The family of this 165-nucleotide RNA from Oscillatoriaceae cyanobacterium M33_DOE_052 is "Ribosomal protein L10 leader". For this family Rfam cites "Diverse mechanisms for regulating ribosomal protein synthesis in Escherichia coli" (Zengel and Lindahl, Prog Nucleic Acid Res Mol Biol, 1994). From the family's description: This family is a putative r-protein leader autoregulatory structure found in B. subtilis and other low-GC Gram-positive bacteria. It is located in the 5' untranslated regions of mRNAs encoding ribosomal proteins L10 and L12 (rplJ-rplL). A Rho-independent transcription terminator structure that is probably involved in regulation is included at the 3' end. It scores 55 bits against the family's covariance model.

RNA sequence: CAAACUAAAUACCCGCAGCCGGAGACAGCAGGUGCCUUUAGAGGCUUAAUUCCCUGCCGAGGUUAGCAGGCGAUCGUACCCGAAACAGCCUUGGCGCUAUUGCCGAGGUAGCAAGGGGACGCCAUGCACCUCCGGCUCUUCGGCUGGGGGUUUUUGAUUGUCAGG
Numbered sequence: 001c002a003a004a005c006u007a008a009a010u011a012c013c014c015g016c017a018g019c020c021g022g023a024g025a026c027a028g029c030a031g032g033u034g035c036c037u038u039u040a041g042a043g044g045c046u047u048a049a050u051u052c053c054c055u056g057c058c059g060a061g062g063u064u065a066g067c068a069g070g071c072g073a074u075c076g077u078a079c080c081c082g083a084a085a086c087a088g089c090c091u092u093g094g095c096g097c098u099a100u101u102g103c104c105g106a107g108g109u110a111g112c113a114a115g116g117g118g119a120c121g122c123c124a125u126g127c128a129c130c131u132c133c134g135g136c137u138c139u140u141c142g143g144c145u146g147g148g149g150g151u152u153u154u155u156g157a158u159u160g161u162c163a164g165g
Stems, first nucleotide, its partner, number of pairs: 028057005034045003129150009
Gene Ontology term of the family: regulation of gene expression. The family's RNA type in Rfam is cis-regulatory leader.